[Rfam]
RNA sequence: AAAGCCAUCAAAGCGGUGGUUGAUGUGUUGCAAAUUAUGACUUUCAUAUCACAGCCAGCUUUGAUGUGCUGCC
Numbered sequence: 001a002a003a004g005c006c007a008u009c010a011a012a013g014c015g016g017u018g019g020u021u022g023a024u025g026u027g028u029u030g031c032a033a034a035u036u037a038u039g040a041c042u043u044u045c046a047u048a049u050c051a052c053a054g055c056c057a058g059c060u061u062u063g064a065u066g067u068g069c070u071g072c073c
Base pairs, nucleotide, nucleotide: 006066007065008064009063010062011061012060013059015056016055017054019052021051022050023049026048027047028046
RNA: mir-2 microRNA precursor family